Nucleotides: 168
Base pairs, nucleotide, nucleotide: 001150006024007023026148027147028146029145030144031143036069070133071132072131078109079108112127113126114125115124
Number, partner (000 for none) and nucleotide at each position: 001150u002000g003000a004000c005000a006024c007023c008000a009000a010000g011000c012000a013000c014000c015000g016000a017000g018000g019000g020000g021000c022000a023007g024006g025000a026148g027147c028146g029145g030144g031143g032000g033000a034000a035000c036069c037000a038000c039000a040000u041000c042000u043000u044000c045000a046000c047000g048000c049000g050000g051000a052000g053000g054000c055000a056000g057000a058000c059000g060000c061000c062000g063000c064000c065000g066000c067000u068000c069036g070133g071132g072131g073000u074000g075000a076000a077000g078109c079108c080000a081000g082000u083000g084000c085000g086000c087000u088000g089000a090000c091000a092000g093000u094000c095000c096000a097000u098000g099000u100000c101000g102000g103000c104000a105000c106000g107000c108079g109078g110000c111000c112127g113126g114125g115124c116000a117000c118000c119000u120000u121000c122000u123000c124115g125114c126113c127112c128000g129000a130000a131072c132071c133070c134000g135000a136000c137000a138000g139000c140000u141000c142000a143031c144030c145029u146028c147027g148026c149000a150001g151000g152000c153000g154000u155000g156000g157000g158000a159000a160000g161000g162000a163000a164000a165000c166000c167000c168000a